[Rfam]
RNA sequence: UGGCACAUAGAAAUGACUUCUUCUCAUUCCUUUUGGACCAGGAAUACAUCCAUAACAUGUUAUAUUUAAAAAAAAGUUCUCAGGGCUGCCAACUUUAGAGUAGAGGUUGAGUGGUAGUAUAUUUCUCCUACAUUA
Numbered sequence: 001u002g003g004c005a006c007a008u009a010g011a012a013a014u015g016a017c018u019u020c021u022u023c024u025c026a027u028u029c030c031u032u033u034u035g036g037a038c039c040a041g042g043a044a045u046a047c048a049u050c051c052a053u054a055a056c057a058u059g060u061u062a063u064a065u066u067u068a069a070a071a072a073a074a075a076g077u078u079c080u081c082a083g084g085g086c087u088g089c090c091a092a093c094u095u096u097a098g099a100g101u102a103g104a105g106g107u108u109g110a111g112u113g114g115u116a117g118u119a120u121a122u123u124u125c126u127c128c129u130a131c132a133u134u135a
Stems, first nucleotide, its partner, number of pairs: 003060003008055001017041002021037003075126002085115002089111001090109007
RNA: Small nucleolar RNA U109
Organism: Chinchilla lanigera